[Rfam]
RNA sequence: GGCGAUAAACGGCCGUCGGAAUAAGCCCAUCGGACCCGGGGGCAGUACCCGGCGCCUCCACCAUAAACCCGCUCUCCACAGGCGCGCUGCACGGGCGGACGCGGGUUUUUGAUGGGGGCGAACUAGGAUCGACGAGGGUGUAAAGGACGGACCUUCGCCCGGCAUGGUACCGCCGUUACAGGACCACAAACAGUAGUUGCGAACGACAACUAUGCUCCGGUUGCUCAGGCUGCGUAA
Numbered sequence: 001g002g003c004g005a006u007a008a009a010c011g012g013c014c015g016u017c018g019g020a021a022u023a024a025g026c027c028c029a030u031c032g033g034a035c036c037c038g039g040g041g042g043c044a045g046u047a048c049c050c051g052g053c054g055c056c057u058c059c060a061c062c063a064u065a066a067a068c069c070c071g072c073u074c075u076c077c078a079c080a081g082g083c084g085c086g087c088u089g090c091a092c093g094g095g096c097g098g099a100c101g102c103g104g105g106u107u108u109u110u111g112a113u114g115g116g117g118g119c120g121a122a123c124u125a126g127g128a129u130c131g132a133c134g135a136g137g138g139u140g141u142a143a144a145g146g147a148c149g150g151a152c153c154u155u156c157g158c159c160c161g162g163c164a165u166g167g168u169a170c171c172g173c174c175g176u177u178a179c180a181g182g183a184c185c186a187c188a189a190a191c192a193g194u195a196g197u198u199g200c201g202a203a204c205g206a207c208a209a210c211u212a213u214g215c216u217c218c219g220g221u222u223g224c225u226c227a228g229g230c231u232g233c234g235u236a237a
Base pairs, nucleotide, nucleotide: 001159002158003157004156005155014149015148016147017146026138027137028136030135031134032133036052037051038050039049040048053120054119055118056117057116058115059114160175161174162173163172